[Rfam]
RNA sequence: UUUUUAUUGGAUGAUGACUGCCACGUGUCAUAUUCUGAUUGGCCAAUGACAAUAACAAUACAUUUCAUCUUCCAUGGAUUCGACAUCCAAUCAGAACAUGACACGUAACAGUCAUCAUCC
Number, nucleotide and partner (000 for none) at each position: 001u000002u000003u000004u000005u000006a000007u000008u000009g000010g000011a000012u000013g000014a000015u000016g000017a000018c000019u000020g109021c000022c000023a106024c000025g104026u103027g000028u000029c100030a099031u098032a000033u096034u095035c094036u093037g000038a091039u090040u089041g088042g087043c000044c000045a000046a000047u000048g000049a000050c000051a000052a000053u000054a000055a000056c000057a000058a000059u000060a000061c000062a000063u000064u000065u000066c000067a000068u000069c000070u000071u000072c000073c000074a000075u000076g000077g000078a000079u000080u000081c000082g000083a000084c000085a000086u000087c042088c041089a040090a039091u038092c000093a036094g035095a034096a033097c000098a031099u030100g029101a000102c000103a026104c025105g000106u023107a000108a000109c020110a000111g000112u000113c000114a000115u000116c000117a000118u000119c000120c000
RNA: MIR1520 microRNA precursor family
Organism: Glycine max